[Rfam]
RNA sequence: AUACUUACCUGGCAGGGGAGGCACCAGGAUCGGGCAGCUGGUUUUCCCAAGGCAGGGUUCAUCCCCUGCACUCUGGGUGUCCUGACCCCUGUGUUUUCCCAAAAUGCAGGAAAUUGCACUGCAUGAUUUGUAGUAACAGAGGACCCUCCAGCAGGGGCCUUGG
Numbered sequence: 001a002u003a004c005u006u007a008c009c010u011g012g013c014a015g016g017g018g019a020g021g022c023a024c025c026a027g028g029a030u031c032g033g034g035c036a037g038c039u040g041g042u043u044u045u046c047c048c049a050a051g052g053c054a055g056g057g058u059u060c061a062u063c064c065c066c067u068g069c070a071c072u073c074u075g076g077g078u079g080u081c082c083u084g085a086c087c088c089c090u091g092u093g094u095u096u097u098c099c100c101a102a103a104a105u106g107c108a109g110g111a112a113a114u115u116g117c118a119c120u121g122c123a124u125g126a127u128u129u130g131u132a133g134u135a136a137c138a139g140a141g142g143a144c145c146c147u148c149c150a151g152c153a154g155g156g157g158c159c160u161u162g163g
Stems, first nucleotide, its partner, number of pairs: 012122004016048006023042005049090001051088002056083002060079005091117003094113003098109001139161004144157001146155002
Overview: The family of this 163-nucleotide sequence from Origma solitaria is "U1 spliceosomal RNA". The literature on the family includes a 1997 paper in Nucleic Acids Res by Zwieb, "The uRNA database". Rfam classes the family as a spliceosomal small nuclear RNA. The base pairs follow the family's consensus structure, which is taken from published work. U1 is a small nuclear RNA (snRNA) component of the spliceosome (involved in pre-mRNA splicing). Its 5' end forms complementary base pairs with the 5' splice junction, thus defining the 5' donor site of an intron. There are significant differences in sequence and secondary structure between metazoan and yeast U1 snRNAs, the latter being much longer (568 nucleotides as compared to 164 nucleotides in human). A search with the family's covariance model found it, with a score of 90 bits.